[Rfam]
RNA sequence: CGAGAGAACUCUUGUUAAGGAACUCGGCAAAAUGACCCCGUAACUUCGGGAGAAGGGGUGCUUGUGAAAGCAAGCCGCAGUGAAUAGGCCCAGGCGACUGUUUAUCAAAAACACAGGUCUCUGCUAAACCGCAAGGUGAUGUAUAGGGGCUGACGCCUGCCCGGUGCUGGAAGGUUAAGAGGAGAGGUUAGCGCAAGCGAAGCUUUGAAUUGAAGCCCCAGUAAACGGCGGCCGUAACUAUAACGGUCCUAAGGUAGCGAAAUUCCUUGUCGGGUAAGUUCCGACCCGCACGAAAGGCGUAACGAUCUGGGCGCUGUCUCAACAAGAGACUCG
Numbered sequence: 001c002g003a004g005a006g007a008a009c010u011c012u013u014g015u016u017a018a019g020g021a022a023c024u025c026g027g028c029a030a031a032a033u034g035a036c037c038c039c040g041u042a043a044c045u046u047c048g049g050g051a052g053a054a055g056g057g058g059u060g061c062u063u064g065u066g067a068a069a070g071c072a073a074g075c076c077g078c079a080g081u082g083a084a085u086a087g088g089c090c091c092a093g094g095c096g097a098c099u100g101u102u103u104a105u106c107a108a109a110a111a112c113a114c115a116g117g118u119c120u121c122u123g124c125u126a127a128a129c130c131g132c133a134a135g136g137u138g139a140u141g142u143a144u145a146g147g148g149g150c151u152g153a154c155g156c157c158u159g160c161c162c163g164g165u166g167c168u169g170g171a172a173g174g175u176u177a178a179g180a181g182g183a184g185a186g187g188u189u190a191g192c193g194c195a196a197g198c199g200a201a202g203c204u205u206u207g208a209a210u211u212g213a214a215g216c217c218c219c220a221g222u223a224a225a226c227g228g229c230g231g232c233c234g235u236a237a238c239u240a241u242a243a244c245g246g247u248c249c250u251a252a253g254g255u256a257g258c259g260a261a262a263u264u265c266c267u268u269g270u271c272g273g274g275u276a277a278g279u280u281c282c283g284a285c286c287c288g289c290a291c292g293a294a295a296g297g298c299g300u301a302a303c304g305a306u307c308u309g310g311g312c313g314c315u316g317u318c319u320c321a322a323c324a325a326g327a328g329a330c331u332c333g
Stems, first nucleotide, its partner, number of pairs: 001333004009328008018319003035059005044049001060075006076080001088312007095304002099113003116151008124141001128137003154299004159229003164226002166222005173217003179211002184206005191198002230248006249253001259286001269285006
Source information:
Bacterial large subunit ribosomal RNA: a 333-nucleotide part of an RNA from Turicibacter sp. H121. Pairs were carried over by alignment from the consensus structure, which is taken from published work. NCBI's taxonomy places the organism under Bacteria, Bacillota, Erysipelotrichales, Turicibacteraceae, Turicibacter.